[Rfam]
RNA sequence: CUCAGCGGGAUGAUGAUAAGGGCUGAAAUGUUACCAGGCCCUUUUCUGAUGGUGGCUGGG
Numbered sequence: 001c002u003c004a005g006c007g008g009g010a011u012g013a014u015g016a017u018a019a020g021g022g023c024u025g026a027a028a029u030g031u032u033a034c035c036a037g038g039c040c041c042u043u044u045u046c047u048g049a050u051g052g053u054g055g056c057u058g059g060g
Stems, first nucleotide, its partner, number of pairs: 001060005015046002018043007029036002
RNA: Selenocysteine insertion sequence 1
Organism: Castor canadensis